The family of this 82-nucleotide RNA from Bacteroidaceae bacterium HV4-6-C5C is "Bacteroides-1 RNA".
The match comes from Rfam's covariance-model search (76 bits).
[Rfam]
RNA sequence: GAGCAAAUCAACCUGAAACAGUUUAUGUGUAUGUGAAUAUUCGUAACUGAUAGAUAUGCCUCCCCGGCAUAUUAAGGUAAGA
Numbered sequence: 001g002a003g004c005a006a007a008u009c010a011a012c013c014u015g016a017a018a019c020a021g022u023u024u025a026u027g028u029g030u031a032u033g034u035g036a037a038u039a040u041u042c043g044u045a046a047c048u049g050a051u052a053g054a055u056a057u058g059c060c061u062c063c064c065c066g067g068c069a070u071a072u073u074a075a076g077g078u079a080a081g082a
Stems, first nucleotide, its partner, number of pairs: 018051001023046005029040004054072007
Source information: By type it is a small RNA. The family's consensus secondary structure is taken from published work.